The family of this 132-nucleotide RNA sequence from Ameiurus melas is "Small nucleolar RNA SNORA68".
The family's consensus secondary structure was predicted with PFOLD.
From the family's description: U68 is a member of the H/ACA class of small nucleolar RNAs (snoRNAs) which act as guides in the the modification of uridines to pseudouridines.
For this family Rfam cites "The family of box ACA small nucleolar RNAs is defined by an evolutionarily conserved secondary structure and ubiquitous sequence elements essential for RNA accumulation" (Ganot et al., Genes Dev, 1997).
The source organism's lineage runs through Eukaryota, Chordata, Otomorpha, Siluriformes and Ameiurus.
Rfam 15.1 lists 1,079 matches to the family in 643 species.
[Rfam]
RNA sequence: UCUGCACACAAACCCAAAGAUCAUUGUGUGUGUGUAUAAUGCUCUUGCUGUGUGUGCGCAAAGAAAACCGUGCCUUGUCGCCUUUCAUAAGCUCUCUCGUGCCACUGAAAGUGAAAUCAAGGUCCGACAUCG
Numbered sequence: 001u002c003u004g005c006a007c008a009c010a011a012a013c014c015c016a017a018a019g020a021u022c023a024u025u026g027u028g029u030g031u032g033u034g035u036a037u038a039a040u041g042c043u044c045u046u047g048c049u050g051u052g053u054g055u056g057c058g059c060a061a062a063g064a065a066a067a068c069c070g071u072g073c074c075u076u077g078u079c080g081c082c083u084u085u086c087a088u089a090a091g092c093u094c095u096c097u098c099g100u101g102c103c104a105c106u107g108a109a110a111g112u113g114a115a116a117u118c119a120a121g122g123u124c125c126g127a128c129a130u131c132g
Base pairs, nucleotide, nucleotide: 003058004057005056006055007054008053009052019044020043022041023040024039025038026037027036028035070125072123073122074121075120076119082111083110084109085108086107087106091102092101